[Rfam]
RNA sequence: GCCCCUAUAGCCCAAUUGGCAGAGGCAGCCGACUUAAAAUCGGCACAGUCAGGGUUCAAGUCCCUGUGGGGGCA
Numbered sequence: 001g002c003c004c005c006u007a008u009a010g011c012c013c014a015a016u017u018g019g020c021a022g023a024g025g026c027a028g029c030c031g032a033c034u035u036a037a038a039a040u041c042g043g044c045a046c047a048g049u050c051a052g053g054g055u056u057c058a059a060g061u062c063c064c065u066g067u068g069g070g071g072g073c074a
Stems, first nucleotide, its partner, number of pairs: 001073007010026003028044005050066005